[Rfam]
RNA: Small nucleolar RNA snoR145
Organism: Rhamnella rubrinervis
RNA sequence: AAGCGAAGGUCCCAGCGGAGGGGUAAGGGACUCUGGAAUUGAGGCCUCUCCAACACAUCAUUAUCCUUCGCAGAAUCACUCGCCGAAUAAUAAGAUGCCCAGAAUUUUUCCCUUUUUUGGAGCAUCUAGAACCCUCGGCUACAUUUCA
Numbered sequence: 001a002a003g004c005g006a007a008g009g010u011c012c013c014a015g016c017g018g019a020g021g022g023g024u025a026a027g028g029g030a031c032u033c034u035g036g037a038a039u040u041g042a043g044g045c046c047u048c049u050c051c052a053a054c055a056c057a058u059c060a061u062u063a064u065c066c067u068u069c070g071c072a073g074a075a076u077c078a079c080u081c082g083c084c085g086a087a088u089a090a091u092a093a094g095a096u097g098c099c100c101a102g103a104a105u106u107u108u109u110c111c112c113u114u115u116u117u118u119g120g121a122g123c124a125u126c127u128a129g130a131a132c133c134c135u136c137g138g139c140u141a142c143a144u145u146u147c148a
Base pairs, nucleotide, nucleotide: 003071004070005069006068007067008066009065011020013018026049027048031043032042033041035039082139083138084137085136086135094126095125097123098122099120100119101118102117103116104115